Overview:
Shown here is a 139-nucleotide sequence from Actinomadura verrucosospora, a member of the family "c-di-AMP riboswitch aptamer (ydaO/yuaA leader)". The organism belongs to Actinomadura, within Bacteria. Rfam 15.1 lists 7,607 matches to the family in 2,262 species.
RNA sequence: GUGCCGUGCCCGCUGGGCCGGCGACGGAGCCGGGGACCCACCCAUGUCCCGUCGGGGUGAAUCGGCCUGCCCGCAGGCCGUAGGGCGGCUUCCACGCCCGAACCCGUCAGCUAACCCGGUAGGCGCUAUGGAAGCCAAG
Number, nucleotide and partner (000 for none) at each position: 001g000002u125003g124004c123005c122006g000007u000008g000009c000010c027011c026012g000013c000014u000015g000016g000017g000018c000019c000020g000021g000022c000023g000024a000025c000026g011027g010028a000029g120030c119031c118032g117033g116034g115035g000036a000037c000038c000039c054040a000041c000042c000043c000044a000045u000046g000047u000048c000049c000050c000051g000052u000053c000054g039055g105056g104057g103058u000059g000060a000061a000062u000063c080064g079065g078066c077067c000068u000069g000070c000071c000072c000073g000074c000075a000076g000077g066078c065079c064080g063081u000082a000083g099084g098085g097086c096087g000088g000089c000090u000091u000092c000093c000094a000095c000096g086097c085098c084099c083100g000101a000102a000103c057104c056105c055106g000107u000108c000109a000110g000111c000112u000113a000114a000115c034116c033117c032118g031119g030120u029121a000122g005123g004124c003125g002126c000127u000128a000129u000130g000131g000132a000133a000134g000135c000136c000137a000138a000139g000